[Rfam]
RNA sequence: AAAAUUAGUUAAGCGCCAGAUCCACACAGGGAUGACGAGGAACGGAGUUAUCGAAAUUUCGGCGGAUGCUCCGAAGGUAUCACAGCCUAAGUGUUCUACAAAAAUCAAAAGAAAUUUUGAUUACAAACAGAACAAAGUGAGUCU
Numbered sequence: 001a002a003a004a005u006u007a008g009u010u011a012a013g014c015g016c017c018a019g020a021u022c023c024a025c026a027c028a029g030g031g032a033u034g035a036c037g038a039g040g041a042a043c044g045g046a047g048u049u050a051u052c053g054a055a056a057u058u059u060c061g062g063c064g065g066a067u068g069c070u071c072c073g074a075a076g077g078u079a080u081c082a083c084a085g086c087c088u089a090a091g092u093g094u095u096c097u098a099c100a101a102a103a104a105u106c107a108a109a110a111g112a113a114a115u116u117u118u119g120a121u122u123a124c125a126a127a128c129a130g131a132a133c134a135a136a137g138u139g140a141g142u143c144u
Base pairs, nucleotide, nucleotide: 020033021032022031023030043073044072045071046070047069051062052061053060054059076086092134093133094132095131096130097129104121105120106119107118108117109116110115
glmS glucosamine-6-phosphate activated ribozyme aptamer: a 144-nucleotide sequence from Peptoniphilus indolicus. Pairs were carried over by alignment from the consensus structure, which is taken from published work. From the family's description: This entry contains a glucosamine-6-phosphate activated ribozyme that is found in the mRNA for GlmS. GlmS is an enzyme that uses fructose-6-phosphate and glutamine to generate glucosamine-6-phosphate. The ribozyme catalyses self cleavage of the glmS mRNA that is thought to regulate GlmS activity. Lineage of the source: Bacteria > Bacillota > Tissierellia > Tissierellales > Peptoniphilus indolicus.